[Rfam]
The family of this 68-nucleotide RNA is "Plastid-clpP 5UTR RNA".
RNA sequence: AAAUAUGUUUGUAGGAACAAAGAGAAACAAAUCUAUUCUAUAUCCGAUAAGUAUCAAUACGCAAUGGG
Numbered sequence: 001a002a003a004u005a006u007g008u009u010u011g012u013a014g015g016a017a018c019a020a021a022g023a024g025a026a027a028c029a030a031a032u033c034u035a036u037u038c039u040a041u042a043u044c045c046g047a048u049a050a051g052u053a054u055c056a057a058u059a060c061g062c063a064a065u066g067g068g
Stems, first nucleotide, its partner, number of pairs: 004021001006019005043068003051060003
Source information:
The family's RNA type in Rfam is cis-regulatory element. Rfam 15.1 lists 2,105 matches to the family in 526 species.